[Rfam]
This 83-nucleotide RNA sequence from Sciurus vulgaris belongs to the Rfam family "mir-17 microRNA precursor family".
On this family, see Lagos-Quintana et al., Science 2001: "Identification of novel genes coding for small expressed RNAs".
Rfam links the family to the GO terms miRNA-mediated post-transcriptional gene silencing and RISC complex.
Lineage of the source: Eukaryota > Bilateria > Gnathostomata > Tetrapoda > Sciurus.
About the family: This family represents the microRNA (miRNA) precursor mir-17, family, which includes mir-20, mir-91, and mir-103. miRNAs are transcribed as ~70nt precursors (modelled here) and subsequently processed by the Dicer enzyme to give a ~22nt product. In this case the mature sequence comes from the 3' arm of the precursor. The extents of the hairpin precursors are not generally known and are estimated based on hairpin prediction.
RNA sequence: UCUCUUGUGUUAAGGUGCAUCUAGUGCAGUUAGUGAAACAGCUCGGAAUCUACUGCCCUAAAUGCCCCUUCUGGCACAAGCUG
Numbered sequence: 001u002c003u004c005u006u007g008u009g010u011u012a013a014g015g016u017g018c019a020u021c022u023a024g025u026g027c028a029g030u031u032a033g034u035g036a037a038a039c040a041g042c043u044c045g046g047a048a049u050c051u052a053c054u055g056c057c058c059u060a061a062a063u064g065c066c067c068c069u070u071c072u073g074g075c076a077c078a079a080g081c082u083g
Stems, first nucleotide, its partner, number of pairs: 004080004009075003013069003017065004022060003026056002029054001031052003